[Rfam]
Nucleotides: 273
Base pairs, nucleotide, nucleotide: 006029007028008027012024013023014022034046035045036044083127085125086122087121093116094115096112097111098110099109100108132152134150135149138148139147140145157200158199159198160196161195208248209247210246211245212244213243217235218234219233220232221231259272260271261270262269263268
Number, partner (000 for none) and nucleotide at each position: 001000u002000g003000g004000c005000a006029c007028c008027c009000a010000a011000c012024g013023u014022g015000g016000c017000c018000u019000g020000g021000a022014u023013a024012c025000u026000g027008g028007g029006g030000a031000c032000a033000a034046c035045g036044u037000g038000a039000g040000g041000g042000a043000c044036a045035u046034g047000a048000c049000g050000a051000a052000a053000g054000a055000a056000g057000a058000a059000g060000g061000g062000g063000u064000g065000c066000g067000c068000a069000c070000c071000c072000g073000a074000u075000c076000a077000a078000a079000c080000a081000a082000u083127a084000g085125u086122u087121c088000a089000g090000a091000g092000a093116c094115g095000u096112c097111a098110c099109g100108g101000u102000a103000g104000c105000c106000u107000g108100c109099u110098g111097u112096g113000a114000c115094c116093g117000a118000g119000c120000c121087g122086a123000c124000a125085g126000g127083u128000a129000a130000g131000u132152u133000g134150g135149u136000c137000g138148u139147c140145a141000a142000u143000c144000a145140u146000a147139g148138g149135g150134c151000a152132a153000g154000a155000a156000u157200u158199a159198a160196g161195u162000c163000a164000g165000c166000a167000u168000c169000a170000a171000a172000a173000g174000u175000a176000u177000g178000u179000g180000a181000u182000g183000c184000a185000g186000u187000u188000a189000a190000g191000a192000g193000a194000a195161g196160c197000a198159u199158u200157a201000c202000a203000g204000g205000c206000a207000a208248g209247a210246g211245g212244a213243g214000u215000a216000a217235a218234g219233g220232u221231u222000a223000c224000a225000a226000c227000u228000a229000a230000a231221g232220a233219u234218u235217u236000a237000u238000u239000u240000c241000a242000u243213u244212u245211c246210u247209u248208u249000g250000a251000u252000u253000u254000c255000g256000u257000a258000c259272a260271g261270g262269a263268c264000a265000u266000u267000u268263g269262u270261c271260c272259u273000c